[Rfam]
RNA sequence: CUGGGACUAGGCGGAAGUAUAGAGGGUAUACUUCAUCAAGUAACUAUACCCGUAUAUAUUUCUGCUUAGCCCCU
Numbered sequence: 001c002u003g004g005g006a007c008u009a010g011g012c013g014g015a016a017g018u019a020u021a022g023a024g025g026g027u028a029u030a031c032u033u034c035a036u037c038a039a040g041u042a043a044c045u046a047u048a049c050c051c052g053u054a055u056a057u058a059u060u061u062c063u064g065c066u067u068a069g070c071c072c073c074u
Base pairs, nucleotide, nucleotide: 003072004071005070007069008068009067010066011065012064013063014062015061016060017059018058024051025050026049027048028047029046030045032042
RNA: mir-55 microRNA precursor family